[Rfam]
RNA: BsrF
RNA sequence: GCGAUGAGCUGAAUUGUGUAAGUCGAUAGACAUACCUUUAUGGUUAAAUGUACGAUGUGGCGUGCAGUCUAUCGCCUCAAUAUACGCAAAGGACGUCUUUUAGACGUCCUU
Numbered sequence: 001g002c003g004a005u006g007a008g009c010u011g012a013a014u015u016g017u018g019u020a021a022g023u024c025g026a027u028a029g030a031c032a033u034a035c036c037u038u039u040a041u042g043g044u045u046a047a048a049u050g051u052a053c054g055a056u057g058u059g060g061c062g063u064g065c066a067g068u069c070u071a072u073c074g075c076c077u078c079a080a081u082a083u084a085c086g087c088a089a090a091g092g093a094c095g096u097c098u099u100u101u102a103g104a105c106g107u108c109c110u111u
Stems, first nucleotide, its partner, number of pairs: 014080003018076001024074008034044002049066002052063003089111009